This 108-nucleotide sequence from Vibrio caribbeanicus belongs to the Rfam family "Qrr RNA". The base pairs follow the family's consensus structure, which is taken from published work. This family represents a set of small RNAs (the Qrr RNAs) that are thought to be involved in the regulation of quorum sensing in Vibrio species. Gene Ontology term of the family: quorum sensing.
[Rfam]
Nucleotides: 108
Stems, first nucleotide, its partner, number of pairs: 001024006040075004046064007077098008
Number, partner (000 for none) and nucleotide at each position: 001024u002023g003022a004021c005020c006019c007000u008000u009000c010000u011000u012000a013000a014000g015000c016000c017000g018000a019006g020005g021004g022003u023002c024001a025000c026000c027000u028000a029000g030000c031000c032000a033000a034000c035000u036000g037000a038000c039000g040075u041074u042073g043072u044000u045000a046064g047063u048062g049061a050060a051059u052058a053000c054000a055000a056000a057000u058052u059051g060050u061049u062048c063047a064046c065000a066000c067000c068000a069000u070000a071000u072043g073042u074041a075040a076000g077098c078097c079096a080095u081094c082093u083092a084091u085000g086000a087000a088000c089000u090000u091084g092083u093082a094081g095080g096079u097078g098077g099000c100000u101000a102000u103000u104000u105000u106000u107000u108000u